This 75-nucleotide RNA sequence from Novosphingobium guangzhouense belongs to the Rfam family "Makes More Granules Regulator RNA (mmgR)".
About the family: SuhB later renamed mmgR (makes more granules regulator) was a putative non-coding RNA found multiple times in the Agrobacterium tumefaciens genome and related alpha-proteobacteria.
The family's RNA type in Rfam is small RNA.
The family is grouped with related families in Rfam's "suhB sRNA clan".
The base pairs follow the family's consensus structure.
RNA sequence: CCGCCAUGCCUUUCAGGCAUCCUCUCCCAAAACUUUUCAAGCCGGCCUUUGGGUCGGCUUUUCUGUUUCGAAACA
Numbered sequence: 001c002c003g004c005c006a007u008g009c010c011u012u013u014c015a016g017g018c019a020u021c022c023u024c025u026c027c028c029a030a031a032a033c034u035u036u037u038c039a040a041g042c043c044g045g046c047c048u049u050u051g052g053g054u055c056g057g058c059u060u061u062u063c064u065g066u067u068u069c070g071a072a073a074c075a
Stems, first nucleotide, its partner, number of pairs: 008018004039060009